RNA: Group II catalytic intron D1-D4-7
Organism: Streptobacillus moniliformis
RNA sequence: CCCUCUAUUCCGUUAGAGGUAGCCUAAUACCACCUGCUUUAUCAGCAAUGAUAAUGUUUGGAAGCUGGUAUGAUAAUGUAGCCCUCCACGAAAGUGGUAAAGUCGAAGCCGUGAGGCUAAGGUGAAUCUGCUAGCAGCAAUGCGGUUAGGGAG
Numbered sequence: 001c002c003c004u005c006u007a008u009u010c011c012g013u014u015a016g017a018g019g020u021a022g023c024c025u026a027a028u029a030c031c032a033c034c035u036g037c038u039u040u041a042u043c044a045g046c047a048a049u050g051a052u053a054a055u056g057u058u059u060g061g062a063a064g065c066u067g068g069u070a071u072g073a074u075a076a077u078g079u080a081g082c083c084c085u086c087c088a089c090g091a092a093a094g095u096g097g098u099a100a101a102g103u104c105g106a107a108g109c110c111g112u113g114a115g116g117c118u119a120a121g122g123u124g125a126a127u128c129u130g131c132u133a134g135c136a137g138c139a140a141u142g143c144g145g146u147u148a149g150g151g152a153g
Base pairs, nucleotide, nucleotide: 002019003018004017005016006015007014028070029069030068031067032066033061034060036057037056039054040053041052042051043050044049086097087096088095089094102123103122109116110115128145129144130143131142